[Rfam]
Nucleotides: 175
Stems, first nucleotide, its partner, number of pairs: 012157003018041010042153006052091001092138003100114004117132004
Number, partner (000 for none) and nucleotide at each position: 001000g002000u003000u004000c005000u006000u007000u008000g009000c010000c011000a012157g013156c014155u015000u016000a017000a018041u019040g020039u021038c022037u023036c024035g025034g026033c027032c028000c029000a030000g031000u032027g033026g034025c035024c036023g037022g038021g039020g040019c041018a042153g043152c044151g045150g046149g047148g048000g049000a050000u051000c052091c053000a054000a055000u056000g057000a058000c059000c060000g061000c062000c063000g064000c065000g066000c067000g068000u069000g070000a071000a072000a073000a074000a075000c076000u077000u078000g079000u080000c081000g082000c083000g084000c085000g086000g087000c088000u089000u090000c091052g092138g093137g094136g095000c096000g097000a098000a099000c100114g101113g102112c103111g104000c105000u106000u107000g108000c109000g110000g111103c112102g113101c114100c115000g116000g117132g118131g119130g120129c121000a122000c123000u124000u125000g126000a127000u128000g129120g130119c131118c132117c133000a134000a135000g136094c137093c138092c139000g140000a141000c142000a143000g144000c145000u146000a147000a148047c149046u150045c151044c152043g153042u154000c155014a156013g157012c158000a159000u160000g161000c162000a163000a164000u165000c166000a167000a168000g169000a170000g171000g172000c173000a174000g175000a